[Rfam]
RNA sequence: CCCAAGGCUCACGCCAUUGGGCUAUUUUAUAGCAUGCCUGCGGCAUU
Numbered sequence: 001c002c003c004a005a006g007g008c009u010c011a012c013g014c015c016a017u018u019g020g021g022c023u024a025u026u027u028u029a030u031a032g033c034a035u036g037c038c039u040g041c042g043g044c045a046u047u
Stems, first nucleotide, its partner, number of pairs: 001021005006015003034046005